[Rfam]
RNA sequence: UGGAUCGAUGAUGAUCAAUGCCGGCGUAUGAGUCACUGAUGAUGAGUAAUACGUAUCUGGAACUCUGAGGUCCAG
Number, nucleotide and partner (000 for none) at each position: 001u000002g073003g072004a071005u070006c069007g000008a000009u000010g000011a000012u000013g000014a000015u000016c000017a000018a000019u000020g000021c000022c000023g000024g000025c000026g000027u000028a000029u000030g000031a000032g000033u000034c000035a000036c000037u000038g000039a000040u000041g000042a000043u000044g000045a000046g000047u000048a000049a000050u000051a000052c000053g000054u000055a000056u000057c000058u000059g000060g000061a000062a000063c000064u000065c000066u000067g000068a000069g006070g005071u004072c003073c002074a000075g000